Record summary
A member of the RNA family "Small nucleolar RNA Z13/snr52" from Coprinopsis marcescibilis, 105 nucleotides long. It is annotated as a C/D-box small nucleolar RNA. It scores 80 bits against the family's covariance model. Rfam 15.1 lists 1,203 matches to the family in 866 species.

RNA sequence: GAGCACAUCAUGAUGAAGCAUUACGGAUGUAAAAUGUCCACGGACGUUAACCCGAGAGCGCAAAACCGUGUGGAUUUUUCCGUUGCCUUCCUUCUGACCUUUUUU
Dot-bracket structure: ..(.(..................((((...................................................))))...................).).